[Rfam]
RNA sequence: AGGGCGUUAUGAUGAUGGCAUUUAUUUGCCAAGUCUAGUCCUAAGGUUAUGUUAGCACCACAGCAUAAC
Number, nucleotide and partner (000 for none) at each position: 001a000002g041003g040004g039005c038006g000007u000008u000009a000010u000011g035012a034013u033014g000015a000016u000017g030018g029019c028020a027021u000022u000023u000024a000025u000026u000027u020028g019029c018030c017031a000032a000033g013034u012035c011036u000037a000038g005039u004040c003041c002042u000043a000044a000045g000046g069047u068048u067049a066050u065051g064052u063053u062054a000055g000056c000057a000058c000059c000060a000061c000062a053063g052064c051065a050066u049067a048068a047069c046

Rfam assigns this 69-nucleotide RNA sequence from Latilactobacillus sakei to the family "L17 ribosomal protein downstream element". The source organism's lineage runs through Bacteria, Bacillota, Lactobacillaceae, Latilactobacillus and Latilactobacillus sakei subsp. sakei. The sequence is in the family's curated seed alignment.